[Rfam]
RNA sequence: CGGAGCAGCCGCAGCCCGCAGAGGACCCCGAGGGCCGCGCUAGCCGGCGGGCAGCCCCGCAGCCGGACCGACCGAGCCGCGCCGCGUCCACCUGUCGGCCGGCCCCGCCGAGAGCGCCGCGGGCACGCCGCGCGCGCCGAGCCGCCGUGCCCGCCGCCCGGGCCCCGCGCCAGGGCGCACACGCUCCCGGCCCGGGCGGGAGUUUGCACCUCUCCCUGCCCCGGGUGCUCGGGCGACCGCCGCAGACAACUUUGGAAAAAGUUUUUUGGGGGGAGAGGCUCGAGCGUGGAGGUGGCCGGCCCCGCGCUUUCUAAUCCGGGGAGCGGAGGGCGGGGGGCGGGCGCCUUCCUAGAAAAAUGUUGCCGAAACACUAAGCCGGCGGGCACAGCCAGACGCCCGUAGCCGGCGGGUGAAGACGACCAGGUCGCCCCGCCGCGUGCCGUCGUCGCCUCUCCGAGGUGGGAGCCCCCCGCGCGCCCCCGCACGGCUGGACGCCUCGGCUGGUUCGCGACGCAGCCCCCCUUGGCCGUGGAUGCUCGCGCGGGCUCGGGAUCCGCCCAGGUAGCGGCCUCGGACCCCGGUCCCGUGCCCAGGAUCUCCCCAGCCCCCCCAGCGACGGAGCCCGGGGGC
Numbered sequence: 001c002g003g004a005g006c007a008g009c010c011g012c013a014g015c016c017c018g019c020a021g022a023g024g025a026c027c028c029c030g031a032g033g034g035c036c037g038c039g040c041u042a043g044c045c046g047g048c049g050g051g052c053a054g055c056c057c058c059g060c061a062g063c064c065g066g067a068c069c070g071a072c073c074g075a076g077c078c079g080c081g082c083c084g085c086g087u088c089c090a091c092c093u094g095u096c097g098g099c100c101g102g103c104c105c106c107g108c109c110g111a112g113a114g115c116g117c118c119g120c121g122g123g124c125a126c127g128c129c130g131c132g133c134g135c136g137c138c139g140a141g142c143c144g145c146c147g148u149g150c151c152c153g154c155c156g157c158c159c160g161g162g163c164c165c166c167g168c169g170c171c172a173g174g175g176c177g178c179a180c181a182c183g184c185u186c187c188c189g190g191c192c193c194g195g196g197c198g199g200g201a202g203u204u205u206g207c208a209c210c211u212c213u214c215c216c217u218g219c220c221c222c223g224g225g226u227g228c229u230c231g232g233g234c235g236a237c238c239g240c241c242g243c244a245g246a247c248a249a250c251u252u253u254g255g256a257a258a259a260a261g262u263u264u265u266u267u268g269g270g271g272g273g274a275g276a277g278g279c280u281c282g283a284g285c286g287u288g289g290a291g292g293u294g295g296c297c298g299g300c301c302c303c304g305c306g307c308u309u310u311c312u313a314a315u316c317c318g319g320g321g322a323g324c325g326g327a328g329g330g331c332g333g334g335g336g337g338c339g340g341g342c343g344c345c346u347u348c349c350u351a352g353a354a355a356a357a358u359g360u361u362g363c364c365g366a367a368a369c370a371c372u373a374a375g376c377c378g379g380c381g382g383g384c385a386c387a388g389c390c391a392g393a394c395g396c397c398c399g400u401a402g403c404c405g406g407c408g409g410g411u412g413a414a415g416a417c418g419a420c421c422a423g424g425u426c427g428c429c430c431c432g433c434c435g436c437g438u439g440c441c442g443u444c445g446u447c448g449c450c451u452c453u454c455c456g457a458g459g460u461g462g463g464a465g466c467c468c469c470c471c472g473c474g475c476g477c478c479c480c481c482g483c484a485c486g487g488c489u490g491g492a493c494g495c496c497u498c499g500g501c502u503g504g505u506u507c508g509c510g511a512c513g514c515a516g517c518c519c520c521c522c523u524u525g526g527c528c529g530u531g532g533a534u535g536c537u538c539g540c541g542c543g544g545g546c547u548c549g550g551g552a553u554c555c556g557c558c559c560a561g562g563u564a565g566c567g568g569c570c571u572c573g574g575a576c577c578c579c580g581g582u583c584c585c586g587u588g589c590c591c592a593g594g595a596u597c598u599c600c601c602c603a604g605c606c607c608c609c610c611c612a613g614c615g616a617c618g619g620a621g622c623c624c625g626g627g628g629g630c
Stems, first nucleotide, its partner, number of pairs: 002247001005243002008240002011230001013229003018215001020213005026177001028175002032171001034170002039165001043163002046109003049105004064101003068098005074092001078086003114159001116157002119154009128139001130137002180206002183203007191195001249262005269602003275599003279594002282591001284589002292540004299536002302532005311526003319521003323517002375407006383400002388394001410514003415509001417508003420504003425500003430491002432488004437483002440463002443459002446457003465475002468472001543584004549578003553575004560571004607629004613622002
RNA: c-sis internal ribosome entry site (IRES)